[Rfam]
RNA: serC leader
RNA sequence: CGACGGGCCACGCGGUCCCAACGCCGCGCGAGCUCUCUGUAAGGAGAGAAUAC
Numbered sequence: 001c002g003a004c005g006g007g008c009c010a011c012g013c014g015g016u017c018c019c020a021a022c023g024c025c026g027c028g029c030g031a032g033c034u035c036u037c038u039g040u041a042a043g044g045a046g047a048g049a050a051u052a053c
Stems, first nucleotide, its partner, number of pairs: 011028006033048006